The record is a 97-nucleotide sequence from Yersinia bercovieri, which matches "sraA" in Rfam. The literature on the family includes a 2001 paper in Curr Biol by Argaman et al., "Novel small RNA-encoding genes in the intergenic regions of Escherichia coli". By type it is a small RNA. The family's consensus secondary structure was predicted with RNAalifold.
[Rfam]
RNA sequence: AGGUAAUUGAGUAUAUGGGGACGAAUGUCUUACAUUCAACGAUAACAAUGCGAGGAAAAAGAAAUGGGGGAUAAAAUCCCCCAUUGUCAUACUAACC
Numbered sequence: 001a002g003g004u005a006a007u008u009g010a011g012u013a014u015a016u017g018g019g020g021a022c023g024a025a026u027g028u029c030u031u032a033c034a035u036u037c038a039a040c041g042a043u044a045a046c047a048a049u050g051c052g053a054g055g056a057a058a059a060a061g062a063a064a065u066g067g068g069g070g071a072u073a074a075a076a077u078c079c080c081c082c083a084u085u086g087u088c089a090u091a092c093u094a095a096c097c
Stems, first nucleotide, its partner, number of pairs: 008038001010036003016032005063085010